This 213-nucleotide RNA sequence belongs to the Rfam family "Streptomyces RNA 1601". It scores 164 bits against the family's covariance model. On this family, see Vockenhuber et al., RNA Biol 2011: "Deep sequencing-based identification of small non-coding RNAs in Streptomyces coelicolor". Identified by deep sequencing of transcriptome at the end of exponential growth phase. Appears longer on northern blot than sequencing transcript. Streptomyces specific.
RNA sequence: GACGACCGGCCGGAGACGUAUGUCCCCGGCCCACAAGUGGAGGCUCCGAUCUCCCACCUGACCGCCCUCCGGGGCGGCGGGUCACCGGUCACGUGGCAUCCAUCGUUCCGUACGGACGAUGGAAAGCCUCGUCAGACGCGCCCCGCGGUCACACGUGGCGGUGCUCCGGUAUUCCUCGGAGCUUCCGCCUGUGUCCCGUCCGGGGCGUUCUUG
Numbered sequence: 001g002a003c004g005a006c007c008g009g010c011c012g013g014a015g016a017c018g019u020a021u022g023u024c025c026c027c028g029g030c031c032c033a034c035a036a037g038u039g040g041a042g043g044c045u046c047c048g049a050u051c052u053c054c055c056a057c058c059u060g061a062c063c064g065c066c067c068u069c070c071g072g073g074g075c076g077g078c079g080g081g082u083c084a085c086c087g088g089u090c091a092c093g094u095g096g097c098a099u100c101c102a103u104c105g106u107u108c109c110g111u112a113c114g115g116a117c118g119a120u121g122g123a124a125a126g127c128c129u130c131g132u133c134a135g136a137c138g139c140g141c142c143c144c145g146c147g148g149u150c151a152c153a154c155g156u157g158g159c160g161g162u163g164c165u166c167c168g169g170u171a172u173u174c175c176u177c178g179g180a181g182c183u184u185c186c187g188c189c190u191g192u193g194u195c196c197c198g199u200c201c202g203g204g205g206c207g208u209u210c211u212u213g
Base pairs, nucleotide, nucleotide: 004090005089006088007087008086009085012027013026028083029082030081031080032079034060035059037057038056039055040054041052042051062077063076064075065074066073067072092131093130095128096127100122101121102120103119104118105117106116107115140206141205142204143203144202145201146198147197148196153194155192156191157189158188159187160186161185163182164181165180166179167178